Notes:
This 79-nucleotide RNA from Aeoliella straminimaris belongs to the Rfam family "c-di-GMP-I-GGC riboswitch aptamer". Pairs were carried over by alignment from the consensus structure, which is taken from published work. NCBI's taxonomy places the organism under Bacteria, Planctomycetota, Planctomycetia, Lacipirellulaceae, Aeoliella. Rfam links the family to the GO term cyclic-di-GMP binding.
[Rfam]
RNA sequence: ACCGAUAAUGGCAAACCUGCCGCGAGGCAGGGACGCAAAGCCGUGGAUCUCCGCCUAGGAGACAGCCAGGUUGCCGGAC
Numbered sequence: 001a002c003c004g005a006u007a008a009u010g011g012c013a014a015a016c017c018u019g020c021c022g023c024g025a026g027g028c029a030g031g032g033a034c035g036c037a038a039a040g041c042c043g044u045g046g047a048u049c050u051c052c053g054c055c056u057a058g059g060a061g062a063c064a065g066c067c068a069g070g071u072u073g074c075c076g077g078a079c
Base pairs, nucleotide, nucleotide: 003076004075011036012035016031017030018029019028020027021026034065039072040071041070042069044068045067046066048062049061
Dot-bracket structure: ..((......((...((((((....))))))..[))..((((.(((.((...........))..])))))))..))...
The family is grouped with related families in Rfam's "c-di-GMP_I riboswitch clan".